[Rfam]
RNA sequence: GCAGACUCACUCUGUACUGAACUGCAGUCUUCAGUUCAGGUGCUUUUUCUGUCUGCGAGAGUAAUAGUUCCCAGGAAUGACAAUUGCCUUCUUCCUUGUAGAAGGCUGUUACAACUGCUGUUGGGACAUUGCU
Numbered sequence: 001g002c003a004g005a006c007u008c009a010c011u012c013u014g015u016a017c018u019g020a021a022c023u024g025c026a027g028u029c030u031u032c033a034g035u036u037c038a039g040g041u042g043c044u045u046u047u048u049c050u051g052u053c054u055g056c057g058a059g060a061g062u063a064a065u066a067g068u069u070c071c072c073a074g075g076a077a078u079g080a081c082a083a084u085u086g087c088c089u090u091c092u093u094c095c096u097u098g099u100a101g102a103a104g105g106c107u108g109u110u111a112c113a114a115c116u117g118c119u120g121u122u123g124g125g126a127c128a129u130u131g132c133u
Stems, first nucleotide, its partner, number of pairs: 001056006014043004018038003022034003070124002072120003076116001078113002082109001086106004
RNA: Small nucleolar RNA SNORA77
Organism: Phalacrocorax carbo